[Rfam]
RNA sequence: GGCCUCCCUCUGUGGGGCAAUUGAUCAAGGGGCUCUGUGAUUGAUUGUCCAGCAGAGGGAGGCC
Numbered sequence: 001g002g003c004c005u006c007c008c009u010c011u012g013u014g015g016g017g018c019a020a021u022u023g024a025u026c027a028a029g030g031g032g033c034u035c036u037g038u039g040a041u042u043g044a045u046u047g048u049c050c051a052g053c054a055g056a057g058g059g060a061g062g063c064c
Stems, first nucleotide, its partner, number of pairs: 001064013015050013029036002
RNA: mir-9242 microRNA precursor family
Organism: Myotis myotis